Rfam assigns this 79-nucleotide sequence from Megasphaera vaginalis to the family "ZMP/ZTP riboswitch aptamer (pfl RNA motif)".
NCBI's taxonomy places the organism under Bacteria, Bacillota, Negativicutes, Veillonellaceae, Megasphaera.
Its family is annotated with one-carbon metabolic process and regulation of purine nucleotide biosynthetic process in the Gene Ontology.
RNA sequence: AAGGAAUCAUGUGACUGACGGAAGUGGGCUGACCACAGGGAGCAUGAUCGAUAAAAAGCCGACCGUCUGGGCAAAUGAG
Number, nucleotide and partner (000 for none) at each position: 001a000002a000003g000004g000005a000006a048007u047008c046009a045010u044011g043012u042013g000014a000015c039016u038017g067018a066019c065020g064021g063022a000023a000024g036025u035026g034027g033028g000029c000030u000031g000032a000033c027034c026035a025036c024037a000038g016039g015040g000041a000042g012043c011044a010045u009046g008047a007048u006049c000050g000051a000052u000053a000054a000055a000056a000057a000058g072059c071060c070061g000062a000063c021064c020065g019066u018067c017068u000069g000070g060071g059072c058073a000074a000075a000076u000077g000078a000079g000